[Rfam]
RNA: Small nucleolar RNA Z247
Nucleotides: 136
Stems, first nucleotide, its partner, number of pairs: 005134004082105003086101002
Number, partner (000 for none) and nucleotide at each position: 001000g002000c003000u004000a005134u006133u007132g008131a009000u010000g011000a012000u013000g014000a015000u016000g017000a018000a019000u020000u021000g022000a023000u024000u025000g026000g027000c028000u029000a030000u031000a032000u033000c034000c035000u036000c037000a038000a039000u040000g041000g042000a043000u044000u045000a046000a047000a048000u049000u050000c051000g052000g053000a054000u055000u056000a057000u058000a059000a060000u061000c062000c063000u064000u065000u066000u067000g068000u069000g070000u071000c072000u073000u074000c075000u076000a077000u078000g079000u080000c081000u082105a083104c084103u085000a086101a087100a088000g089000a090000u091000u092000c093000u094000a095000u096000c097000a098000g099000u100087u101086u102000g103084a104083g105082u106000g107000a108000u109000c110000u111000a112000u113000a114000u115000g116000c117000u118000c119000a120000g121000c122000u123000u124000c125000u126000c127000u128000c129000c130000u131008u132007u133006g134005a135000a136000u